[Rfam]
RNA: Purine riboswitch aptamer
RNA sequence: GAAUUAUUCAAUAAUAAUGUUCGUAUAUCCUUGUGAAUAUGGCGCAAGGGUUUCUACAAGGAACCAUGAAUUCCUGACUACGAAUGGAUACUUUUUAGUG
Dot-bracket structure: .................((((((((...(((((((.......))))))).........(((((.......)))))...))))))))..............